[Rfam]
RNA sequence: ACCACCUGGGGGUCUUGUUAAAAUACAGAAUCUGAUUCAGUGAGCCUGAGAUGGAGCCCAAGAUUCUGCAUUUCUAACAAGCUCCCAGGUGAUGUCCA
Numbered sequence: 001a002c003c004a005c006c007u008g009g010g011g012g013u014c015u016u017g018u019u020a021a022a023a024u025a026c027a028g029a030a031u032c033u034g035a036u037u038c039a040g041u042g043a044g045c046c047u048g049a050g051a052u053g054g055a056g057c058c059c060a061a062g063a064u065u066c067u068g069c070a071u072u073u074c075u076a077a078c079a080a081g082c083u084c085c086c087a088g089g090u091g092a093u094g095u096c097c098a
Stems, first nucleotide, its partner, number of pairs: 003091003009085003014081007021073003026068004031063003
RNA: mir-544 microRNA precursor family